[Rfam]
RNA: Small nucleolar RNA SNORD99
Organism: Synaphobranchus kaupii
RNA sequence: CCUGGUCGAUGAUGAAACCCUAACUGAUAGCGGACUGUUGGAUGAAGCUUGCGGAUAUGGGACUGAGGCUGGAA
Numbered sequence: 001c002c003u004g005g006u007c008g009a010u011g012a013u014g015a016a017a018c019c020c021u022a023a024c025u026g027a028u029a030g031c032g033g034a035c036u037g038u039u040g041g042a043u044g045a046a047g048c049u050u051g052c053g054g055a056u057a058u059g060g061g062a063c064u065g066a067g068g069c070u071g072g073a074a
Base pairs, nucleotide, nucleotide: 002072003071004070005069